[Rfam]
A member of the RNA family "tRNA" from Neomoorella thermoacetica, 82 nucleotides long. It scores 49 bits against the family's covariance model. By type it is a transfer RNA.

RNA sequence: GCGGCGAUGGCGGAACCGGCAGACGCGUACGUUUGAGGGGCGUAUGGGUACACCCGUGCGGGUUCAAGUCCCGCUCGCCGCA
Numbered sequence: 001g002c003g004g005c006g007a008u009g010g011c012g013g014a015a016c017c018g019g020c021a022g023a024c025g026c027g028u029a030c031g032u033u034u035g036a037g038g039g040g041c042g043u044a045u046g047g048g049u050a051c052a053c054c055c056g057u058g059c060g061g062g063u064u065c066a067a068g069u070c071c072c073g074c075u076c077g078c079c080g081c082a
Base pairs, nucleotide, nucleotide: 001081002080003079004078005077006076007075010026011025012024028044029043030042031041032040058074059073060072061071062070